A member of the RNA family "tRNA" from Candidatus Nitrotoga fabula, 74 nucleotides long. Taxonomically the source falls in Candidatus Nitrotoga (Bacteria, Pseudomonadati, Pseudomonadota, Gallionellaceae). The family's RNA type in Rfam is transfer RNA.
[Rfam]
RNA sequence: GGGUCGUUAGCUCAGUUGGUUAGAGCAGAGGACUCAUAAUCCUUUGGUCCGCGGUUCAAGUCCGCGACGACCCA
Numbered sequence: 001g002g003g004u005c006g007u008u009a010g011c012u013c014a015g016u017u018g019g020u021u022a023g024a025g026c027a028g029a030g031g032a033c034u035c036a037u038a039a040u041c042c043u044u045u046g047g048u049c050c051g052c053g054g055u056u057c058a059a060g061u062c063c064g065c066g067a068c069g070a071c072c073c074a
Stems, first nucleotide, its partner, number of pairs: 001073007010026004028044005050066005
Dot-bracket structure: (((((((..((((.........)))).(((((.......))))).....(((((.......)))))))))))).